[Rfam]
ctRNA: a 92-nucleotide RNA from Gemella sp. GH3. From the family's description: Rolling circle replication plasmids contain a number of mechanisms to maintain a low copy number. One of these methods is to transcribe a small RNA called ctRNA (for counter-transcribed RNA) than is transcribed on the opposite strand to RepB the replication initiation protein. ctRNA binds to the mRNA of repB and causes translational inhibition. Taxonomically the source falls in Gemella (Bacteria, Bacillati, Caryophanales, Gemellaceae). Its family is annotated with plasmid copy number maintenance and mRNA binding in the Gene Ontology. For this family Rfam cites "pT181 plasmid replication is regulated by a countertranscript-driven transcriptional attenuator" (Novick et al., Cell, 1989).

RNA sequence: AUACAAAUUCAUAAAAAACAACUCAUGUUUUCUUUUUGGAUUGUCGUUCACAAACUUUGGUCGGUGGGUGAGCGACUUCUUUUUAUUUGUUU
Dot-bracket structure: ....(((.......(((((.......)))))..)))......(((((((((................)))))))))................